Annotation: Shown here is an 89-nucleotide RNA from Anguilla anguilla, a member of the family "mir-135 microRNA precursor family". A search with the family's covariance model found it, with a score of 77 bits. The organism belongs to Anguilla, within Eukaryota.
RNA sequence: UCACUUCUGUGUUUUAUGGCUUUCUAUUCCUAUGUGAUUUUUUCUGCAGUAUCUCACGUAGGGUUCAAAGCCAUUAGGUACAGAGUGGA
Dot-bracket structure: .(..((((((((((.((((((((..(.((((((((((................)))))))))).).)))))))).))))))))))..).